Shown here is a 95-nucleotide RNA sequence from Umbravirus ethiopiaense, a member of the family "Luteovirus cap-independent translation element (BTE)". NCBI's taxonomy places the organism under Viruses, Kitrinoviricota, Tombusviridae, Umbravirus, Umbravirus ethiopiaense.
RNA sequence: AUAAAGUGGGCUAGGGCGGAUCCUGGGAAACAGGCUGCCUGGCGGCGUAAGCUCGGGUGUGUGAACCCCACACCGACGCAUCACCUAGCCGGGAC
Numbered sequence: 001a002u003a004a005a006g007u008g009g010g011c012u013a014g015g016g017c018g019g020a021u022c023c024u025g026g027g028a029a030a031c032a033g034g035c036u037g038c039c040u041g042g043c044g045g046c047g048u049a050a051g052c053u054c055g056g057g058u059g060u061g062u063g064a065a066c067c068c069c070a071c072a073c074c075g076a077c078g079c080a081u082c083a084c085c086u087a088g089c090c091g092g093g094a095c
Stems, first nucleotide, its partner, number of pairs: 009090007018082002022034004037046003051079002056074006

On this family, see Shen and Miller, Virology 2004: "Subgenomic RNA as a riboregulator: negative regulation of RNA replication by Barley yellow dwarf virus subgenomic RNA 2". From the family's description: This family represents the Luteovirus cap-independent translation element (BTE) as found in barley yellow dwarf virus (BYDV), bean leafroll virus and soybean dwarf virus. This family mediates translation of genomic (gRNA) and subgenomic RNA1 (sgRNA1).